[Rfam]
Source information:
Guanidine-I riboswitch aptamer: a 122-nucleotide sequence from Starkeya nomas. Rfam 15.1 lists 1,509 matches to the family in 1,281 species.
RNA sequence: UACAAAUGUCCCUAGGGUUCCGGCGCCGAUGACCACGUGUCACCGGCGCGGCUGGUCCGAGAGGGGCAGCCCGGCGCUGCCGACAGGCGCCGGGUCCACGGCGGGACAAAAGCCCGGGAGGU
Numbered sequence: 001u002a003c004a005a006a007u008g009u010c011c012c013u014a015g016g017g018u019u020c021c022g023g024c025g026c027c028g029a030u031g032a033c034c035a036c037g038u039g040u041c042a043c044c045g046g047c048g049c050g051g052c053u054g055g056u057c058c059g060a061g062a063g064g065g066g067c068a069g070c071c072c073g074g075c076g077c078u079g080c081c082g083a084c085a086g087g088c089g090c091c092g093g094g095u096c097c098a099c100g101g102c103g104g105g106a107c108a109a110a111a112g113c114c115c116g117g118g119a120g121g122u
Stems, first nucleotide, its partner, number of pairs: 007068006015058002020055002022052001023049006069095010097117001099120001103115003